[Rfam]
A member of the RNA family "Nuclear RNase P" from Piaya cayana, 303 nucleotides long. Rfam describes the family as follows. Ribonuclease P (RNase P) is a ubiquitous endoribonuclease, found in archaea, bacteria and eukarya as well as chloroplasts and mitochondria. Its best characterised activity is the generation of mature 5'-ends of tRNAs by cleaving the 5'-leader elements of precursor-tRNAs. The organism belongs to Piaya, within Eukaryota.
RNA sequence: CCCGGGGGAAGCUCACCGCCGAGGCCAGCGCGGGGUGCGCGUCACCCGGGCCCCGCCUCGGGGAAGGUCUGAGGCACGGGCCGCCUGCGGCCCCAGCAGGGCCCCGCCCGCGAGGGGCGGGUGAGCCACCAGCAAGGGGGGGCCCCGCGCGGCACGCGACGGGCAGGAGAAGCCGCGGCGGCGCCGCCCGGCGGAUGCUCGAGGCCGCGCGGGGCUUUGGGACAGACUCACGGCCGGCAACUGAGUCCAAUGGGUGAGGCGGGACAGAGCCCCGUAACCCAAUUCAGACUACUCUCCCCCGGG
Numbered sequence: 001c002c003c004g005g006g007g008g009a010a011g012c013u014c015a016c017c018g019c020c021g022a023g024g025c026c027a028g029c030g031c032g033g034g035g036u037g038c039g040c041g042u043c044a045c046c047c048g049g050g051c052c053c054c055g056c057c058u059c060g061g062g063g064a065a066g067g068u069c070u071g072a073g074g075c076a077c078g079g080g081c082c083g084c085c086u087g088c089g090g091c092c093c094c095a096g097c098a099g100g101g102c103c104c105c106g107c108c109c110g111c112g113a114g115g116g117g118c119g120g121g122u123g124a125g126c127c128a129c130c131a132g133c134a135a136g137g138g139g140g141g142g143c144c145c146c147g148c149g150c151g152g153c154a155c156g157c158g159a160c161g162g163g164c165a166g167g168a169g170a171a172g173c174c175g176c177g178g179c180g181g182c183g184c185c186g187c188c189c190g191g192c193g194g195a196u197g198c199u200c201g202a203g204g205c206c207g208c209g210c211g212g213g214g215c216u217u218u219g220g221g222a223c224a225g226a227c228u229c230a231c232g233g234c235c236g237g238c239a240a241c242u243g244a245g246u247c248c249a250a251u252g253g254g255u256g257a258g259g260c261g262g263g264a265c266a267g268a269g270c271c272c273c274g275u276a277a278c279c280c281a282a283u284u285c286a287g288a289c290u291a292c293u294c295u296c297c298c299c300c301g302g303g
Stems, first nucleotide, its partner, number of pairs: 001303004007297003012258006020060005033047005069287005079235004089103005104120006121231005127225001141216007259275005265269001
Dot-bracket structure: ((((..(((..((((((..(((((........(((((.....)))))........)))))........[[[[[.....((((......(((((.....)))))((((((.....))))))(((((.(.............(((((((..............................................................)))))))........).))))))))).................))))))(((((.(...).))))).......]]]]].......)))..))))